RNA sequence: CGGCGAGGACGACCUCGCGCUUUCUCCGAAAUCCGGCCGGGACGACCCGC
Numbered sequence: 001c002g003g004c005g006a007g008g009a010c011g012a013c014c015u016c017g018c019g020c021u022u023u024c025u026c027c028g029a030a031a032u033c034c035g036g037c038c039g040g041g042a043c044g045a046c047c048c049g050c
Stems, first nucleotide, its partner, number of pairs: 003018006038049004
RNA: Guanidine-II riboswitch aptamer (mini-ykkC)